[Rfam]
RNA: FMN riboswitch aptamer (RFN element)
RNA sequence: GCCCGUUCUCAGGGCGGGGCGGAAUUCCCCACCGGCGGUAAGUGGGGAAACCUGCAAGCCCGCGAGCGCCUCUCGCGUUGAGAGGGUCAAGCAGAUCAGGUGCGAUUCCUGAGCCGACGGUCAAAGUCCGGAUGAAAGAGAAUAUGU
Numbered sequence: 001g002c003c004c005g006u007u008c009u010c011a012g013g014g015c016g017g018g019g020c021g022g023a024a025u026u027c028c029c030c031a032c033c034g035g036c037g038g039u040a041a042g043u044g045g046g047g048a049a050a051c052c053u054g055c056a057a058g059c060c061c062g063c064g065a066g067c068g069c070c071u072c073u074c075g076c077g078u079u080g081a082g083a084g085g086g087u088c089a090a091g092c093a094g095a096u097c098a099g100g101u102g103c104g105a106u107u108c109c110u111g112a113g114c115c116g117a118c119g120g121u122c123a124a125a126g127u128c129c130g131g132a133u134g135a136a137a138g139a140g141a142a143u144a145u146g147u
Base pairs, nucleotide, nucleotide: 005143006142007141008140009139010138017029018028019027031127032126033116034115035063036062037061038060058114059113066092067091096112097111098110099109100108118130119129120128